[Rfam]
RNA sequence: UGCCGGGGUAUCCAACCUCCGGCGUCACUGAAGAGGCACUUGUUACAUCCUUGCCCGACGUGCGGCUCGGUAUCUCCGAUCCAAUCAACGGCAUUCCCGACGCGGGAAAGCAUCGCGUGCAUGUCAAAUGCCGUGAUCGCCCGACCGUCGC
Numbered sequence: 001u002g003c004c005g006g007g008g009u010a011u012c013c014a015a016c017c018u019c020c021g022g023c024g025u026c027a028c029u030g031a032a033g034a035g036g037c038a039c040u041u042g043u044u045a046c047a048u049c050c051u052u053g054c055c056c057g058a059c060g061u062g063c064g065g066c067u068c069g070g071u072a073u074c075u076c077c078g079a080u081c082c083a084a085u086c087a088a089c090g091g092c093a094u095u096c097c098c099g100a101c102g103c104g105g106g107a108a109a110g111c112a113u114c115g116c117g118u119g120c121a122u123g124u125c126a127a128a129u130g131c132c133g134u135g136a137u138c139g140c141c142c143g144a145c146c147g148u149c150g151c
Base pairs, nucleotide, nucleotide: 001024002023003022004021005020006019007018008017035055036054037053038052064151085105086104113136114135115134116133117132